Shown here is a 126-nucleotide sequence from Dipodomys ordii, a member of the family "Small nucleolar RNA SNORA40". From the family's description: The snoRNA ACA 40 belongs to the H/ACA family of snoRNAs and guides the pseudouridylation of 28S rRNA subunit at position U4565. Its family is annotated with nucleolus and RNA processing in the Gene Ontology. A search with the family's covariance model found it, with a score of 61 bits. It is annotated as an H/ACA-box small nucleolar RNA.
[Rfam]
RNA sequence: CUUGCCUGUUUGUGUCUUGUUUAAUUUGUGACACAGCCUUACAGACAGGUGUAAACAGCCAAUGCUGUUUUGCAACUCAGAACUCAUUGCUGAAUAUGAGAUUCUGGUAGGUUAAGAAAGAAUAUG
Numbered sequence: 001c002u003u004g005c006c007u008g009u010u011u012g013u014g015u016c017u018u019g020u021u022u023a024a025u026u027u028g029u030g031a032c033a034c035a036g037c038c039u040u041a042c043a044g045a046c047a048g049g050u051g052u053a054a055a056c057a058g059c060c061a062a063u064g065c066u067g068u069u070u071u072g073c074a075a076c077u078c079a080g081a082a083c084u085c086a087u088u089g090c091u092g093a094a095u096a097u098g099a100g101a102u103u104c105u106g107g108u109a110g111g112u113u114a115a116g117a118a119a120g121a122a123u124a125u126g
Stems, first nucleotide, its partner, number of pairs: 003051007011043001014038001016036002018033003062123002065120002068117005078106005083100005